[Rfam]
The family of this 58-nucleotide RNA from Eubacterium sp. AF22-8LB is "pemK RNA".
Pairs were carried over by alignment from the consensus structure, which is taken from published work.

RNA sequence: AUAAUGAUACUUCUAGCGACAGGCCCAAGCGUAAUAUGGGUUGGUGAGAUUCCAAUGA
Numbered sequence: 001a002u003a004a005u006g007a008u009a010c011u012u013c014u015a016g017c018g019a020c021a022g023g024c025c026c027a028a029g030c031g032u033a034a035u036a037u038g039g040g041u042u043g044g045u046g047a048g049a050u051u052c053c054a055a056u057g058a
Stems, first nucleotide, its partner, number of pairs: 012055001013022002023041003027037001029035001042054003